[Rfam]
RNA sequence: CAGUCAGCCAAUUAAUUUGCUUAUCUGAAUGUGUUUCUGCAGAAAUUUAGAAAAAACUGGCAAUAUGAUGUCAUGUUAUGAGCCUUCAGGACAAUUGGGGUCAUUAAGGCUCCUGAAAACAACUACGAUA
Numbered sequence: 001c002a003g004u005c006a007g008c009c010a011a012u013u014a015a016u017u018u019g020c021u022u023a024u025c026u027g028a029a030u031g032u033g034u035u036u037c038u039g040c041a042g043a044a045a046u047u048u049a050g051a052a053a054a055a056a057c058u059g060g061c062a063a064u065a066u067g068a069u070g071u072c073a074u075g076u077u078a079u080g081a082g083c084c085u086u087c088a089g090g091a092c093a094a095u096u097g098g099g100g101u102c103a104u105u106a107a108g109g110c111u112c113c114u115g116a117a118a119a120c121a122a123c124u125a126c127g128a129u130a
Stems, first nucleotide, its partner, number of pairs: 003061005016043005070123002082110005088104001090102003
Shown here is a 130-nucleotide RNA from Jaculus jaculus, a member of the family "Small nucleolar RNA SNORA33".
Rfam describes the family as follows. ACA33 is a member of the H/ACA class of snoRNA that guide the sites of modification of uridines to pseudouridines.
The base pairs follow the family's consensus structure, which was predicted with PFOLD.
NCBI's taxonomy places the organism under Eukaryota, Amniota, Mammalia, Glires, Jaculus.